[Rfam]
RNA: Enterobacterial sRNA STnc240
RNA sequence: AUAAGUUGGGGCAAAAUACGCCCCCUGCAAAAUGCAAAACAUAACCGACGCUUAUAACGUCGGUUAUUUUUUUGU
Numbered sequence: 001a002u003a004a005g006u007u008g009g010g011g012c013a014a015a016a017u018a019c020g021c022c023c024c025c026u027g028c029a030a031a032a033u034g035c036a037a038a039a040c041a042u043a044a045c046c047g048a049c050g051c052u053u054a055u056a057a058c059g060u061c062g063g064u065u066a067u068u069u070u071u072u073u074g075u
Stems, first nucleotide, its partner, number of pairs: 011021002042066009